[Rfam]
RNA sequence: UCGCCCACAAUGCCUUCAACGGUUUCAACACGGAUGCGGCGCGGUGCAAGUGUGAGCGGACACAAUACACCUGCCUGUCGGCGUCAUGCCGAAGCCCUGUCAGGGGCAUCCUUGUUGGAGCCGUAACCGGCGUUUUGCGUUUCAAGACCCGGCUCCUCCUUUGGUCUCCUCGCGCUAACCCCGUAGCGUGUGGUUUUUAGCGGGCUCCAGGCCCGCUUUUUUUU
Numbered sequence: 001u002c003g004c005c006c007a008c009a010a011u012g013c014c015u016u017c018a019a020c021g022g023u024u025u026c027a028a029c030a031c032g033g034a035u036g037c038g039g040c041g042c043g044g045u046g047c048a049a050g051u052g053u054g055a056g057c058g059g060a061c062a063c064a065a066u067a068c069a070c071c072u073g074c075c076u077g078u079c080g081g082c083g084u085c086a087u088g089c090c091g092a093a094g095c096c097c098u099g100u101c102a103g104g105g106g107c108a109u110c111c112u113u114g115u116u117g118g119a120g121c122c123g124u125a126a127c128c129g130g131c132g133u134u135u136u137g138c139g140u141u142u143c144a145a146g147a148c149c150c151g152g153c154u155c156c157u158c159c160u161u162u163g164g165u166c167u168c169c170u171c172g173c174g175c176u177a178a179c180c181c182c183g184u185a186g187c188g189u190g191u192g193g194u195u196u197u198u199a200g201c202g203g204g205c206u207c208c209a210g211g212c213c214c215g216c217u218u219u220u221u222u223u224u
Stems, first nucleotide, its partner, number of pairs: 005164003019124012032111006038075003043071004048066001050063004078092005095105004128146001168193002171190007199217008
RNA: Burkholderia sRNA Bp1_Cand871_SIPHT